c-di-AMP riboswitch aptamer (ydaO/yuaA leader): a 152-nucleotide RNA from Ornithinibacillus hominis.
It scores 86 bits against the family's covariance model.
The organism belongs to Ornithinibacillus, within Bacteria.
The pairing is the family consensus, mapped onto this sequence.

[Rfam]
RNA sequence: ACCUUAUAAUCGCUGAAUCUGUUUCUUGAACGGGGGAACCAAUACGGAUGGUUUACUAGACCAUCUGAAGGGGUGAAUCUUACUAAGGUAAGAGGGGGUACUCUCAAUCCCUAAUCCGACAGCUAACCUCGUAAGCGUUACGUAAUUUCUGA
Numbered sequence: 001a002c003c004u005u006a007u008a009a010u011c012g013c014u015g016a017a018u019c020u021g022u023u024u025c026u027u028g029a030a031c032g033g034g035g036g037a038a039c040c041a042a043u044a045c046g047g048a049u050g051g052u053u054u055a056c057u058a059g060a061c062c063a064u065c066u067g068a069a070g071g072g073g074u075g076a077a078u079c080u081u082a083c084u085a086a087g088g089u090a091a092g093a094g095g096g097g098g099u100a101c102u103c104u105c106a107a108u109c110c111c112u113a114a115u116c117c118g119a120c121a122g123c124u125a126a127c128c129u130c131g132u133a134a135g136c137g138u139u140a141c142g143u144a145a146u147u148u149c150u151g152a
Stems, first nucleotide, its partner, number of pairs: 011137004018029002030132006040070001071117003079092004095111004